A member of the RNA family "mir-8517 microRNA precursor family" from Plutella xylostella, 96 nucleotides long.

RNA sequence: UUACUGAACGCUUUAGCUAUUGAACUGUUCUGUCACUCUGACAGAGUACAAUUUGUUCUGUGACAAAACAGUUCAAUAGCUAAAGCGUACAGUACC
Numbered sequence: 001u002u003a004c005u006g007a008a009c010g011c012u013u014u015a016g017c018u019a020u021u022g023a024a025c026u027g028u029u030c031u032g033u034c035a036c037u038c039u040g041a042c043a044g045a046g047u048a049c050a051a052u053u054u055g056u057u058c059u060g061u062g063a064c065a066a067a068a069c070a071g072u073u074c075a076a077u078a079g080c081u082a083a084a085g086c087g088u089a090c091a092g093u094a095c096c
Stems, first nucleotide, its partner, number of pairs: 002094005011085019031065005048056003
The family's consensus secondary structure was predicted with RNAalifold.
Lineage of the source: Eukaryota > Eumetabola > Glossata > Heteroneura > Plutella.